[Rfam]
RNA sequence: GAAACGUCAACCCGGCGCCACCACCGUGGGUCAGACCGGGACCGUCCUCCCGCAAGGGAUGACAGCC
Numbered sequence: 001g002a003a004a005c006g007u008c009a010a011c012c013c014g015g016c017g018c019c020a021c022c023a024c025c026g027u028g029g030g031u032c033a034g035a036c037c038g039g040g041a042c043c044g045u046c047c048u049c050c051c052g053c054a055a056g057g058g059a060u061g062a063c064a065g066c067c
Stems, first nucleotide, its partner, number of pairs: 011040005018029004044063003048059004
The family of this 67-nucleotide RNA from Virgisporangium ochraceum is "Transposase-2 RNA". It scores 62 bits against the family's covariance model. Rfam classes the family as a small RNA. Rfam 15.1 lists 214 matches to the family in 110 species.